[Rfam]
Rfam assigns this 128-nucleotide RNA sequence from Candidatus Symbiopectobacterium sp. Dall1.0 to the family "RtT RNA". This family represents a bacterial cis-regulatory element known as RtT RNA. The exact function of RtT is unknown although it is thought that it may be involved in changing the cellular response in relation to amino acid starvation. The family's RNA type in Rfam is cis-regulatory element. Its family is annotated with cellular response to amino acid starvation in the Gene Ontology. Pairs were carried over by alignment from the consensus structure, which is taken from published work. The organism belongs to Symbiopectobacterium, within Bacteria.

Nucleotides: 128
Stems, first nucleotide, its partner, number of pairs: 015119007022111001032093002035091002040087003043083001047057002064079006
Number, partner (000 for none) and nucleotide at each position: 001000u002000a003000u004000g005000u006000g007000c008000g009000u010000c011000u012000g013000u014000c015119g016118u017117g018116c019115a020114g021113g022111u023000g024000a025000g026000a027000a028000g029000c030000u031000g032093c033092g034000u035091u036090c037000a038000g039000g040087u041086u042085c043083g044000a045000g046000c047057c048056g049000a050000g051000c052000g053000a054000a055000g056048c057047g058000a059000g060000a061000c062000a063000g064079c065078g066077a067076c068075g069074c070000g071000u072000u073000a074069g075068c076067g077066u078065u079064g080000a081000c082000c083043c084000c085042g086041a087040a088000g089000g090036g091035g092033c093032g094000a095000g096000g097000c098000c099000a100000a101000c102000g103000g104000c105000c106000g107000a108000g109000u110000u111022a112000u113021c114020c115019u116018g117017c118016a119015c120000g121000a122000c123000c124000c125000a126000c127000c128000a